RNA sequence: UUCCGACAAUGGCAAACCUGGCGAAAGCCAGCGACGCAAAGCUAUAGGGGCGUAACUGCGGUGUAUUGAAGCCGCAAGCCAGCCAGCUACCGAA
Numbered sequence: 001u002u003c004c005g006a007c008a009a010u011g012g013c014a015a016a017c018c019u020g021g022c023g024a025a026a027g028c029c030a031g032c033g034a035c036g037c038a039a040a041g042c043u044a045u046a047g048g049g050g051c052g053u054a055a056c057u058g059c060g061g062u063g064u065a066u067u068g069a070a071g072c073c074g075c076a077a078g079c080c081a082g083c084c085a086g087c088u089a090c091c092g093a094a
Stems, first nucleotide, its partner, number of pairs: 012037002018031005040088004047084002049080003056074001058072002

Rfam assigns this 94-nucleotide RNA sequence from Paenibacillus sedimenti to the family "c-di-GMP-I riboswitch aptamer". The family's consensus secondary structure is taken from published work. The organism belongs to Paenibacillus, within Bacteria.